[Rfam]
RNA: Plastid-psbA-1 3UTR RNA
RNA sequence: UUGAAGUUCCAUCUAUAAAUGGAUAAGACUUUUGUCUUAGUGUGUUUGAGCUCUUGGAAAAAAAAGAGAGAGCAAUGCCAACCCUUUUAAUUGAACAAGCUUUUUUUUUUU
Numbered sequence: 001u002u003g004a005a006g007u008u009c010c011a012u013c014u015a016u017a018a019a020u021g022g023a024u025a026a027g028a029c030u031u032u033u034g035u036c037u038u039a040g041u042g043u044g045u046u047u048g049a050g051c052u053c054u055u056g057g058a059a060a061a062a063a064a065a066g067a068g069a070g071a072g073c074a075a076u077g078c079c080a081a082c083c084c085u086u087u088u089a090a091u092u093g094a095a096c097a098a099g100c101u102u103u104u105u106u107u108u109u110u111u
Base pairs, nucleotide, nucleotide: 008023009022010021011020012019061111062110063109064108065107066106067105068104069103070102071101072100073099079093080092